[Rfam]
RNA sequence: GUCCAUGUAUCCACCUCAAUCCAUGUGUGUUAGGGUGGUUUGAUGUGGAAUUUAGUUUAAAUUUCCCACCAACCACUCCAACACACAUGGAUUGAGGUGGAUAUAUGA
Numbered sequence: 001g002u003c004c005a006u007g008u009a010u011c012c013a014c015c016u017c018a019a020u021c022c023a024u025g026u027g028u029g030u031u032a033g034g035g036u037g038g039u040u041u042g043a044u045g046u047g048g049a050a051u052u053u054a055g056u057u058u059a060a061a062u063u064u065c066c067c068a069c070c071a072a073c074c075a076c077u078c079c080a081a082c083a084c085a086c087a088u089g090g091a092u093u094g095a096g097g098u099g100g101a102u103a104u105a106u107g108a
Stems, first nucleotide, its partner, number of pairs: 004107011016095016035076006042070001045067001047065001
Rfam assigns this 108-nucleotide RNA sequence from Miscanthus lutarioriparius to the family "MIR5565 microRNA precursor family".
Lineage of the source: Eukaryota > Liliopsida > Poales > Poaceae > Miscanthus.
The base pairs follow the family's consensus structure, which was predicted with RNAalifold.
The match comes from Rfam's covariance-model search (86 bits).
Rfam links the family to the GO terms miRNA-mediated post-transcriptional gene silencing and RISC complex.